[Rfam]
RNA sequence: AGGUUUCCUGCUUCAACAGUACUUGAACGGAACCC
Numbered sequence: 001a002g003g004u005u006u007c008c009u010g011c012u013u014c015a016a017c018a019g020u021a022c023u024u025g026a027a028c029g030g031a032a033c034c035c
Stems, first nucleotide, its partner, number of pairs: 002035002005032004010028001012027005
The family of this 35-nucleotide sequence from Jaculus jaculus is "Iron response element I". A reference for the family is Huang et al. (1999), "An atypical iron-responsive element (IRE) within crayfish ferritin mRNA and an iron regulatory protein 1 (IRP1)-like protein from crayfish hepatopancreas", Insect Biochem Mol Biol. The family has 62 seed sequences and 6,829 matches in Rfam 15.1. Its family is annotated with response to iron ion in the Gene Ontology. The organism belongs to Jaculus, within Eukaryota.